[Rfam]
RNA sequence: AUAUGUUCUCAGGGCGGGGUGAAACUCCCCACCGGCGGUGAUGAAGCAAUGCUUCCAGCCCGCGAGCGCCGUGCUGACUUCUAGUCGGCGCGGGUCAGCAGAUUCGGUGUGAUUCCGAAGCCGACGGUUACAGUCCGGAUGGAAGAGAACGGGA
Numbered sequence: 001a002u003a004u005g006u007u008c009u010c011a012g013g014g015c016g017g018g019g020u021g022a023a024a025c026u027c028c029c030c031a032c033c034g035g036c037g038g039u040g041a042u043g044a045a046g047c048a049a050u051g052c053u054u055c056c057a058g059c060c061c062g063c064g065a066g067c068g069c070c071g072u073g074c075u076g077a078c079u080u081c082u083a084g085u086c087g088g089c090g091c092g093g094g095u096c097a098g099c100a101g102a103u104u105c106g107g108u109g110u111g112a113u114u115c116c117g118a119a120g121c122c123g124a125c126g127g128u129u130a131c132a133g134u135c136c137g138g139a140u141g142g143a144a145g146a147g148a149a150c151g152g153g154a
Stems, first nucleotide, its partner, number of pairs: 004151007017029003031134002033123002035063004058121002066099002103119005125137003

Source information
Rfam assigns this 154-nucleotide sequence from Devosia pacifica to the family "FMN riboswitch aptamer (RFN element)". The organism belongs to Devosia, within Bacteria. Rfam links the family to the GO term FMN binding. The family's consensus secondary structure is taken from published work.